[Rfam]
RNA sequence: CCAGGGACUCGCGUCCCUGGCUAUUACAUACCGUCGCUUCGCGACU
Numbered sequence: 001c002c003a004g005g006g007a008c009u010c011g012c013g014u015c016c017c018u019g020g021c022u023a024u025u026a027c028a029u030a031c032c033g034u035c036g037c038u039u040c041g042c043g044a045c046u
Stems, first nucleotide, its partner, number of pairs: 001020008033045005
Record summary: A member of the RNA family "Acido-Lenti-1 RNA" from Rosistilla oblonga, 46 nucleotides long. By type it is a small RNA. The family has 87 seed sequences and 2,607 matches in Rfam 15.1. It scores 53 bits against the family's covariance model. The base pairs follow the family's consensus structure, which is taken from published work.